Small nucleolar RNA snoR2/U65: a 160-nucleotide RNA from Cajanus cajan. The match comes from Rfam's covariance-model search (137 bits). Rfam classes the family as an H/ACA-box small nucleolar RNA. The family has 11 seed sequences and 908 matches in Rfam 15.1. Its Rfam clan is "SNORA65 clan".

RNA sequence: UGUCCGAUGCCACGUCGCUGGUAGCCACAAGUGAGCAUUGACCAGCGAUGCUAUGAUUGGACCAAAAGAAAGAGUGAAAUUCAUUCGUUUCGCAUCCUGAUAGGAACCUGCGGAUCUCAUGAAAUUAUGAUCUGCGGAGCCGAUUUAUGCGAUUACAUUU
Numbered sequence: 001u002g003u004c005c006g007a008u009g010c011c012a013c014g015u016c017g018c019u020g021g022u023a024g025c026c027a028c029a030a031g032u033g034a035g036c037a038u039u040g041a042c043c044a045g046c047g048a049u050g051c052u053a054u055g056a057u058u059g060g061a062c063c064a065a066a067a068g069a070a071a072g073a074g075u076g077a078a079a080u081u082c083a084u085u086c087g088u089u090u091c092g093c094a095u096c097c098u099g100a101u102a103g104g105a106a107c108c109u110g111c112g113g114a115u116c117u118c119a120u121g122a123a124a125u126u127a128u129g130a131u132c133u134g135c136g137g138a139g140c141c142g143a144u145u146u147a148u149g150c151g152a153u154u155a156c157a158u159u160u
Base pairs, nucleotide, nucleotide: 002062003061004060005059006058007057008056009054013050014049015048016047017046018045020043021042022041024036025035090152091151092150093149094148103141104140108137109136110135112133113132114131115130116129